This 77-nucleotide sequence from Clupea harengus belongs to the Rfam family "mir-27 microRNA precursor family". The organism belongs to Clupea, within Eukaryota. A reference for the family is Chen et al. (2005), "The developmental miRNA profiles of zebrafish as determined by small RNA cloning", Genes Dev. It scores 64 bits against the family's covariance model.
RNA sequence: UGAAGACCCAGAGUUUAGCUCACUGGUGAGCAGUGGAACAACAAACUUGUUCACAGUGGCUAAGUUCGGUGUCUUAA
Numbered sequence: 001u002g003a004a005g006a007c008c009c010a011g012a013g014u015u016u017a018g019c020u021c022a023c024u025g026g027u028g029a030g031c032a033g034u035g036g037a038a039c040a041a042c043a044a045a046c047u048u049g050u051u052c053a054c055a056g057u058g059g060c061u062a063a064g065u066u067c068g069g070u071g072u073c074u075u076a077a
Stems, first nucleotide, its partner, number of pairs: 011067010026054007